The record is a 64-nucleotide RNA from Triplophysa tibetana, which matches "Selenocysteine insertion sequence 1" in Rfam.
Taxonomically the source falls in Triplophysa (Eukaryota, Vertebrata, Teleostei, Osteoglossocephalai).
Rfam describes the family as follows. The incorporation of selenocysteine into a protein sequence is directed by an in-frame UGA codon (usually a stop codon) within the coding region of the mRNA. Selenoprotein mRNAs contain a conserved secondary structure in the 3' UTR that is required for the distinction of UGA stop from UGA selenocysteine.
RNA sequence: UCCAGCUAAUGAUGACUUGCGCUAAAAGCCCUUACUGGACAGGGCAAGUCUGAUGUCACCUGGC
Numbered sequence: 001u002c003c004a005g006c007u008a009a010u011g012a013u014g015a016c017u018u019g020c021g022c023u024a025a026a027a028g029c030c031c032u033u034a035c036u037g038g039a040c041a042g043g044g045c046a047a048g049u050c051u052g053a054u055g056u057c058a059c060c061u062g063g064c
Stems, first nucleotide, its partner, number of pairs: 002063004014050007022042002030038002